[Rfam]
RNA: FMN riboswitch aptamer (RFN element)
RNA sequence: AUUCAUCUUCGGGGCAGGGUGAAAUUCCCGACCGGCGGUAAUGAAGGUUCGUCCUUUUUAGCCCGCGAGCUAAUUUUUUAGCAGGAUUUUGGUGAGAUUCCAAAGCCGACAGUAUAGUCUGGAUGGGAGAAGAUGAAG
Numbered sequence: 001a002u003u004c005a006u007c008u009u010c011g012g013g014g015c016a017g018g019g020u021g022a023a024a025u026u027c028c029c030g031a032c033c034g035g036c037g038g039u040a041a042u043g044a045a046g047g048u049u050c051g052u053c054c055u056u057u058u059u060a061g062c063c064c065g066c067g068a069g070c071u072a073a074u075u076u077u078u079u080a081g082c083a084g085g086a087u088u089u090u091g092g093u094g095a096g097a098u099u100c101c102a103a104a105g106c107c108g109a110c111a112g113u114a115u116a117g118u119c120u121g122g123a124u125g126g127g128a129g130a131a132g133a134u135g136a137a138g
Base pairs, nucleotide, nucleotide: 003136004135005134006133007132008131009130010129017029018028019027031118032117033108034107035066036065037064038063061106062105069082070081071080088104089103090102091101092100110121111120112119